[Rfam]
RNA sequence: UGUUCUCGUCGCAACUGGCGUUCAGAUGGCUACCAUCGGGAAGCGACUUGACACGGAUUCGGCCGCUCGCCUGGGUCGCUACG
Numbered sequence: 001u002g003u004u005c006u007c008g009u010c011g012c013a014a015c016u017g018g019c020g021u022u023c024a025g026a027u028g029g030c031u032a033c034c035a036u037c038g039g040g041a042a043g044c045g046a047c048u049u050g051a052c053a054c055g056g057a058u059u060c061g062g063c064c065g066c067u068c069g070c071c072u073g074g075g076u077c078g079c080u081a082c083g
Base pairs, nucleotide, nucleotide: 004051005050008047009046010045011044012043015040016039017071018070019069020068026036027035028034029033060078061077062076063075064074
ZMP/ZTP riboswitch aptamer (pfl RNA motif): an 83-nucleotide RNA sequence from Subtercola lobariae. Pairs were carried over by alignment from the consensus structure, which is taken from published work. The organism belongs to Subtercola, within Bacteria. Rfam links the family to the GO terms one-carbon metabolic process and regulation of purine nucleotide biosynthetic process.